[Rfam]
RNA sequence: CGCUGGUCCUCCAAAGACCAGCACCGAAGAGGCUUGUCCUUCAUUGCCGGGCGUGCGGGGUCUUCCCAAGCGACGGUUCCAGGGUCCGGACGAUCUGUUCGGCGACUCAAGGCGUCUCCAUCGCGCCUCGAUUCGUUGACGCAUCAC
Numbered sequence: 001c002g003c004u005g006g007u008c009c010u011c012c013a014a015a016g017a018c019c020a021g022c023a024c025c026g027a028a029g030a031g032g033c034u035u036g037u038c039c040u041u042c043a044u045u046g047c048c049g050g051g052c053g054u055g056c057g058g059g060g061u062c063u064u065c066c067c068a069a070g071c072g073a074c075g076g077u078u079c080c081a082g083g084g085u086c087c088g089g090a091c092g093a094u095c096u097g098u099u100c101g102g103c104g105a106c107u108c109a110a111g112g113c114g115u116c117u118c119c120a121u122c123g124c125g126c127c128u129c130g131a132u133u134c135g136u137u138g139a140c141g142c143a144u145c146a147c
Stems, first nucleotide, its partner, number of pairs: 002022007031048003055126003075087002097107001099105001
RNA: speF leader